Rfam assigns this 93-nucleotide sequence from Rhododendron simsii to the family "Small nucleolar RNA snoR27". The base pairs follow the family's consensus structure, which was predicted with WAR. The organism belongs to Rhododendron, within Eukaryota. A search with the family's covariance model found it, with a score of 64 bits. On this family, see Brown et al., RNA 2001: "Multiple snoRNA gene clusters from Arabidopsis".
[Rfam]
RNA sequence: UAGGAUCAAUGAUGUUAUGAAUAAACUGCGUUAUCUAUCUGAUUAAUUCCCUCAAAAGGGACUGAAGAUAGCUACACCAUGCUGAGAUCCAUG
Dot-bracket structure: ((((((................................................................................)))).))